[Rfam]
RNA sequence: AGUUUAAAACAACUAACUAAAUAAUUUAGUGCAGAUUGUUUGACAGCAUGCUAAAGUUAUAUGCUUAAUAACUCGUUACGCUAGUGGUGGGAUACUGCUACUAGAUAAGUAAUCAAUCUCAGAUUGUUGCGAAGUGAAAGAAUAGCAAGAGUGCGUAUAACGUGGAGGGUAUGUGUAAUUAGGCUAAAUCUAAACAGUGGUGGCGACAAUAGACGCUCCAGUGGAGAAUAAUCCUACAAGCCCAAGCUUGACCACUUGAAGUAAGUAGGAAACUGUCAAAAUAAGCCAUUAUGCGCAUUGACGAGUGAAAAGCUCGUUGCUUACACUAAAAGAUUGUACAAGUAGCCCAAAGGCGCAUCGAUAAUUGGAAUAUUGUCACAUAGCUUAAUAAUUCUGAAUGUCGGGUGAAAGUUGGAGGUAACCAGUCCUGCCUAGUCAUUAAACCUCUUAGGAAGUUGUGAGGUAGCUCCUCAUAGCUCAGACCUAAGACGACUAUCAGCUAAUAAGUUGCAUAUAUCUGAAGCAGAGCGAAGGCUCAUUUAGUUGGUUGUUUUAG
Numbered sequence: 001a002g003u004u005u006a007a008a009a010c011a012a013c014u015a016a017c018u019a020a021a022u023a024a025u026u027u028a029g030u031g032c033a034g035a036u037u038g039u040u041u042g043a044c045a046g047c048a049u050g051c052u053a054a055a056g057u058u059a060u061a062u063g064c065u066u067a068a069u070a071a072c073u074c075g076u077u078a079c080g081c082u083a084g085u086g087g088u089g090g091g092a093u094a095c096u097g098c099u100a101c102u103a104g105a106u107a108a109g110u111a112a113u114c115a116a117u118c119u120c121a122g123a124u125u126g127u128u129g130c131g132a133a134g135u136g137a138a139a140g141a142a143u144a145g146c147a148a149g150a151g152u153g154c155g156u157a158u159a160a161c162g163u164g165g166a167g168g169g170u171a172u173g174u175g176u177a178a179u180u181a182g183g184c185u186a187a188a189u190c191u192a193a194a195c196a197g198u199g200g201u202g203g204c205g206a207c208a209a210u211a212g213a214c215g216c217u218c219c220a221g222u223g224g225a226g227a228a229u230a231a232u233c234c235u236a237c238a239a240g241c242c243c244a245a246g247c248u249u250g251a252c253c254a255c256u257u258g259a260a261g262u263a264a265g266u267a268g269g270a271a272a273c274u275g276u277c278a279a280a281a282u283a284a285g286c287c288a289u290u291a292u293g294c295g296c297a298u299u300g301a302c303g304a305g306u307g308a309a310a311a312g313c314u315c316g317u318u319g320c321u322u323a324c325a326c327u328a329a330a331a332g333a334u335u336g337u338a339c340a341a342g343u344a345g346c347c348c349a350a351a352g353g354c355g356c357a358u359c360g361a362u363a364a365u366u367g368g369a370a371u372a373u374u375g376u377c378a379c380a381u382a383g384c385u386u387a388a389u390a391a392u393u394c395u396g397a398a399u400g401u402c403g404g405g406u407g408a409a410a411g412u413u414g415g416a417g418g419u420a421a422c423c424a425g426u427c428c429u430g431c432c433u434a435g436u437c438a439u440u441a442a443a444c445c446u447c448u449u450a451g452g453a454a455g456u457u458g459u460g461a462g463g464u465a466g467c468u469c470c471u472c473a474u475a476g477c478u479c480a481g482a483c484c485u486a487a488g489a490c491g492a493c494u495a496u497c498a499g500c501u502a503a504u505a506a507g508u509u510g511c512a513u514a515u516a517u518c519u520g521a522a523g524c525a526g527a528g529c530g531a532a533g534g535c536u537c538a539u540u541u542a543g544u545u546g547g548u549u550g551u552u553u554u555a556g
Base pairs, nucleotide, nucleotide: 007553008552009551010550011549012548013547014546015545016544017543018542020541021540025055026054027053028052029051037048038047039046058159059158060157061156062155075110076109077107078106082103083102084101085100086099087098088097089096090095113129115127118122134146135145137143168519169518173513174512178509180507185499187335188334189333190332196327197326198325199324200289201288202287203286204285216226217225218224219223232270233269234268235267236266237265240262241261243258244257245256249278250277251276252275293356294355295354296353302316303315304314305313339411345406346405347404348403350401393482394481395480396479415431417429418428433495434494435493448488449487451485452484455478457475458474459473460472461471462470463469526537527536528535529534

The family of this 556-nucleotide RNA sequence from Streptococcus phage Javan207 is "ROOL RNA". Rfam's curators write: Firmicutes, Fusobacteria (1 example), Tenericutes (1 example).